[Rfam]
RNA sequence: AAAAUGAGGGACAAUAUACCAUUUGUUCUUCAAACACAGCAGUAGGUACAAAAAUGAUGAAGGCGAGAUAUCGUUUCAGUUGUCAUUCCUACAGGUUGACGAUUCGAUUGUUGCUCGUCCACAU
Numbered sequence: 001a002a003a004a005u006g007a008g009g010g011a012c013a014a015u016a017u018a019c020c021a022u023u024u025g026u027u028c029u030u031c032a033a034a035c036a037c038a039g040c041a042g043u044a045g046g047u048a049c050a051a052a053a054a055u056g057a058u059g060a061a062g063g064c065g066a067g068a069u070a071u072c073g074u075u076u077c078a079g080u081u082g083u084c085a086u087u088c089c090u091a092c093a094g095g096u097u098g099a100c101g102a103u104u105c106g107a108u109u110g111u112u113g114c115u116c117g118u119c120c121a122c123a124u
Stems, first nucleotide, its partner, number of pairs: 005033001008030003011026004062120002065116003070108004079103007087095002